[Rfam]
RNA sequence: UCCGCGCAAACGAUUACGUGCUGUAUAUGUCUGGUAAUUUGGACCGGAUGUUUCUACCGCUGAGCCUAACUCGGUGACUACAGUAAGUUUGCUUUAAUUA
Numbered sequence: 001u002c003c004g005c006g007c008a009a010a011c012g013a014u015u016a017c018g019u020g021c022u023g024u025a026u027a028u029g030u031c032u033g034g035u036a037a038u039u040u041g042g043a044c045c046g047g048a049u050g051u052u053u054c055u056a057c058c059g060c061u062g063a064g065c066c067u068a069a070c071u072c073g074g075u076g077a078c079u080a081c082a083g084u085a086a087g088u089u090u091g092c093u094u095u096a097a098u099u100a
Stems, first nucleotide, its partner, number of pairs: 019085007029049007058076007
Purine riboswitch aptamer: a 100-nucleotide sequence from Vibrio renipiscarius. A reference for the family is Mandal and Breaker (2004), "Adenine riboswitches and gene activation by disruption of a transcription terminator", Nat Struct Mol Biol.